[Rfam]
RNA sequence: UUAGUUAAAGACCGUUCCAUUCCGGCUAGAGGCAUUAGUUUCAUGCUAGGAAGUGUAAAAAACCGACCUCACCCGUCGGUUUUUUUAC
Numbered sequence: 001u002u003a004g005u006u007a008a009a010g011a012c013c014g015u016u017c018c019a020u021u022c023c024g025g026c027u028a029g030a031g032g033c034a035u036u037a038g039u040u041u042c043a044u045g046c047u048a049g050g051a052a053g054u055g056u057a058a059a060a061a062a063c064c065g066a067c068c069u070c071a072c073c074c075g076u077c078g079g080u081u082u083u084u085u086u087a088c
Stems, first nucleotide, its partner, number of pairs: 021051003024047003029041003057085011
Rfam assigns this 88-nucleotide RNA from Serratia fonticola to the family "ArsR-gov region gene B". Lineage of the source: Bacteria > Pseudomonadati > Gammaproteobacteria > Enterobacterales > Serratia. On this family, see Weel-Sneve et al., PLoS Genet 2013: "Single transmembrane peptide DinQ modulates membrane-dependent activities". A search with the family's covariance model found it, with a score of 46 bits. Rfam 15.1 lists 51 matches to the family in 31 species. The base pairs follow the family's consensus structure, which was predicted with RNAfold.